[Rfam]
Shown here is a 145-nucleotide RNA from Streptomyces calvus, a member of the family "Streptomyces-metH RNA". The family's RNA type in Rfam is small RNA. The organism belongs to Streptomyces, within Bacteria.
RNA sequence: CUCGUCCGGCCCGUGGACGCCCUGAACAUCGGGACGCGGUCCCGGAUACCCUGGCGGCGUGCGCCUCGCCUGGGGAGCUCGAACGGAAGCUCUCCGGGUCGCCGCAAAGCCGACAGCCGUCGCACCUGAGGGAGCCCCAUUCAUG
Dot-bracket structure: ...........................................................((((.((((..........................))))....))))..((.(((....)))))......................
Numbered sequence: 001c002u003c004g005u006c007c008g009g010c011c012c013g014u015g016g017a018c019g020c021c022c023u024g025a026a027c028a029u030c031g032g033g034a035c036g037c038g039g040u041c042c043c044g045g046a047u048a049c050c051c052u053g054g055c056g057g058c059g060u061g062c063g064c065c066u067c068g069c070c071u072g073g074g075g076a077g078c079u080c081g082a083a084c085g086g087a088a089g090c091u092c093u094c095c096g097g098g099u100c101g102c103c104g105c106a107a108a109g110c111c112g113a114c115a116g117c118c119g120u121c122g123c124a125c126c127u128g129a130g131g132g133a134g135c136c137c138c139a140u141u142c143a144u145g
Stems, first nucleotide, its partner, number of pairs: 060106004065098004109123002112121003